About this RNA:
Shown here is a 54-nucleotide RNA from Echinops telfairi, a member of the family "Editing element of GABA-3 exon 9". For this family Rfam cites "Editing modifies the GABA(A) receptor subunit alpha3" (Ohlson et al., RNA, 2007). Lineage of the source: Eukaryota > Opisthokonta > Eumetazoa > Vertebrata > Echinops. The base pairs follow the family's consensus structure, which is taken from published work. The family's RNA type in Rfam is cis-regulatory element.
RNA sequence: AAGGUGGCCUACGCCACAGCCAUGGAUUGGUUUAUCGCUGUGUGCUAUGCCUUC
Numbered sequence: 001a002a003g004g005u006g007g008c009c010u011a012c013g014c015c016a017c018a019g020c021c022a023u024g025g026a027u028u029g030g031u032u033u034a035u036c037g038c039u040g041u042g043u044g045c046u047a048u049g050c051c052u053u054c
Base pairs, nucleotide, nucleotide: 002053003052006051007050008049010047011046013045014044015042016041017040018039019038020037022035023034024033025032026031